[Rfam]
Nucleotides: 132
Stems, first nucleotide, its partner, number of pairs: 009122001012119005022109002025106003029102001031100003049087002054081002057078002061074004
Number, partner (000 for none) and nucleotide at each position: 001000a002000g003000a004000a005000a006000g007000c008000a009122c010000a011000c012119u013118a014117a015116u016115u017000a018000u019000c020000c021000c022109u023108a024000a025106g026105g027104c028000c029102a030000c031100g032099g033098g034000a035000u036000a037000a038000a039000a040000c041000a042000a043000a044000a045000a046000c047000c048000c049087u050086g051000c052000a053000a054081a055080a056000c057078u058077a059000a060000g061074u062073u063072a064071g065000c066000a067000c068000a069000c070000c071064c072063u073062a074061g075000a076000a077058u078057g079000g080055u081054u082000c083000u084000a085000g086050c087049a088000u089000g090000a091000u092000u093000a094000c095000u096000a097000a098033c099032c100031u101000a102029u103000a104027g105026c106025u107000c108023u109022a110000a111000u112000a113000c114000c115016a116015g117014u118013u119012g120000a121000a122009g123000g124000a125000a126000a127000a128000a129000g130000c131000u132000g

Rfam assigns this 132-nucleotide sequence from Vitis rotundifolia to the family "MIR845_2 microRNA precursor family". Rfam links the family to the GO terms miRNA-mediated post-transcriptional gene silencing and RISC complex. Rfam 15.1 lists 180 matches to the family in 2 species.